[Rfam]
RNA sequence: GCUGGGUUGGGUGGCGCCAACUUGUAACGGGUAUGCUUCUGCUCGGGUAGUAAGGUGUGAGGGUUGUGGCAUGCGUUGUGUUGUCACUAUCCCCAGGAUGUGGAAGGCGCGUCCAUCUCAAACCAGGAGUCGACAUUGGGACAUUGUCGUAAGACACUGUACCGAGGUCACUAAGGAAUGGUGAACUGCCCCAGGCUGGAUAACAGAGCAGGGAAAAGCCCUCGCUCUUGGUAGUGGGAGGAUCUCGUGCCAGAAUUCUGACGUGCUAACGCAUCGCUGCAAGCCGCAAUUCGAUCACCUUGCGA
Numbered sequence: 001g002c003u004g005g006g007u008u009g010g011g012u013g014g015c016g017c018c019a020a021c022u023u024g025u026a027a028c029g030g031g032u033a034u035g036c037u038u039c040u041g042c043u044c045g046g047g048u049a050g051u052a053a054g055g056u057g058u059g060a061g062g063g064u065u066g067u068g069g070c071a072u073g074c075g076u077u078g079u080g081u082u083g084u085c086a087c088u089a090u091c092c093c094c095a096g097g098a099u100g101u102g103g104a105a106g107g108c109g110c111g112u113c114c115a116u117c118u119c120a121a122a123c124c125a126g127g128a129g130u131c132g133a134c135a136u137u138g139g140g141a142c143a144u145u146g147u148c149g150u151a152a153g154a155c156a157c158u159g160u161a162c163c164g165a166g167g168u169c170a171c172u173a174a175g176g177a178a179u180g181g182u183g184a185a186c187u188g189c190c191c192c193a194g195g196c197u198g199g200a201u202a203a204c205a206g207a208g209c210a211g212g213g214a215a216a217a218g219c220c221c222u223c224g225c226u227c228u229u230g231g232u233a234g235u236g237g238g239a240g241g242a243u244c245u246c247g248u249g250c251c252a253g254a255a256u257u258c259u260g261a262c263g264u265g266c267u268a269a270c271g272c273a274u275c276g277c278u279g280c281a282a283g284c285c286g287c288a289a290u291u292c293g294a295u296c297a298c299c300u301u302g303c304g305a
Stems, first nucleotide, its partner, number of pairs: 001048003004023007028045005050303008061292010072281004080272002084268001089264002093260001095259005101253001106251006113241002116239005122232009132169003136165004141160003145156004171175001178222001180220003187215001189213003196206003
The family of this 305-nucleotide RNA from Phytophthora ramorum is "Metazoan signal recognition particle RNA". It is annotated as a non-coding RNA gene. NCBI's taxonomy places the organism under Eukaryota, Sar, Oomycota, Peronosporaceae, Phytophthora. From the family's description: The signal recognition particle (SRP) is a universally conserved ribonucleoprotein. It is involved in the co-translational targeting of proteins to membranes.